[Rfam]
The family of this 356-nucleotide RNA sequence from Sphingopyxis macrogoltabida is "Alphaproteobacteria transfer-messenger RNA".
By type it is a non-coding RNA gene.
RNA sequence: GCUCUUUCCAAGCGCGGGCGGGCUUCCUAUAUCAGUCUUGCCGGUUUCGGCCGGCUAUGAGGAUAAAUGGUGUCGUGGAAUAGACACAGCGGACCCGGGGGCAGUACCCGGCGGCUCCACCACAAACCCGCGCUUGCUUUUGGGGCGCGCGGGUUUCUGAGGGGGCCGAACCAGGAUCGACGUGUGUUCAAAGGCGAUAUUUUCUUCCGGGCUGAGUAACCCGUUCAAGGCUCAAAACGAUAAGUGCUAACGAUAACGAAGCACUCGCUCUUGCUGCCUAACCGAUAAGCCUCACGGCCUAAGGUUAGACAAAUAGAACGCGGUUCGGACCGAACCGGGCAACAGAAUCGGAUACC
Numbered sequence: 001g002c003u004c005u006u007u008c009c010a011a012g013c014g015c016g017g018g019c020g021g022g023c024u025u026c027c028u029a030u031a032u033c034a035g036u037c038u039u040g041c042c043g044g045u046u047u048c049g050g051c052c053g054g055c056u057a058u059g060a061g062g063a064u065a066a067a068u069g070g071u072g073u074c075g076u077g078g079a080a081u082a083g084a085c086a087c088a089g090c091g092g093a094c095c096c097g098g099g100g101g102c103a104g105u106a107c108c109c110g111g112c113g114g115c116u117c118c119a120c121c122a123c124a125a126a127c128c129c130g131c132g133c134u135u136g137c138u139u140u141u142g143g144g145g146c147g148c149g150c151g152g153g154u155u156u157c158u159g160a161g162g163g164g165g166c167c168g169a170a171c172c173a174g175g176a177u178c179g180a181c182g183u184g185u186g187u188u189c190a191a192a193g194g195c196g197a198u199a200u201u202u203u204c205u206u207c208c209g210g211g212c213u214g215a216g217u218a219a220c221c222c223g224u225u226c227a228a229g230g231c232u233c234a235a236a237a238c239g240a241u242a243a244g245u246g247c248u249a250a251c252g253a254u255a256a257c258g259a260a261g262c263a264c265u266c267g268c269u270c271u272u273g274c275u276g277c278c279u280a281a282c283c284g285a286u287a288a289g290c291c292u293c294a295c296g297g298c299c300u301a302a303g304g305u306u307a308g309a310c311a312a313a314u315a316g317a318a319c320g321c322g323g324u325u326c327g328g329a330c331c332g333a334a335c336c337g338g339g340c341a342a343c344a345g346a347a348u349c350g351g352a353u354a355c356c
Stems, first nucleotide, its partner, number of pairs: 040055005059207005070200007085186003089183003095111005112168007208223004213234003321337004327353001330350001332348001